[Rfam]
RNA sequence: CAAUGAAGGAAGCAUGAUAAUGUGCACAGAAAUUGAAUUGGGUCUUUAGGCCUGCUAUAUCUGAUGUCAUUUGGCUUUGAUUUGGGCCAUGGUUCCACAGCAAAACA
Numbered sequence: 001c002a003a004u005g006a007a008g009g010a011a012g013c014a015u016g017a018u019a020a021u022g023u024g025c026a027c028a029g030a031a032a033u034u035g036a037a038u039u040g041g042g043u044c045u046u047u048a049g050g051c052c053u054g055c056u057a058u059a060u061c062u063g064a065u066g067u068c069a070u071u072u073g074g075c076u077u078u079g080a081u082u083u084g085g086g087c088c089a090u091g092g093u094u095c096c097a098c099a100g101c102a103a104a105a106c107a
Stems, first nucleotide, its partner, number of pairs: 012025004040090001041088004050081001052079001054075003
RNA: Small nucleolar RNA snoR100